[Rfam]
RNA sequence: UCGUUCUCGGAAGGCGUCGACGCGCGGCCUAUGAAGCGUGCCGCCGGGACCGCGCCGAGCUACUGGCGAGACCGGUCCGAGGGGCA
Dot-bracket structure: (..((((((((.(((......((((((.(........[..[..[...).))))))...)))...]..]....]..))))))))..)

The family of this 86-nucleotide RNA is "c-di-GMP-II-GAG riboswitch aptamer". Its Rfam clan is "c-di-GMP_II riboswitch clan". On this family, see Weinberg et al., Proc Natl Acad Sci U S A 2017: "Bioinformatic analysis of riboswitch structures uncovers variant classes with altered ligand specificity". Rfam's curators put it in the seed alignment. The base pairs follow the family's consensus structure, which is taken from published work.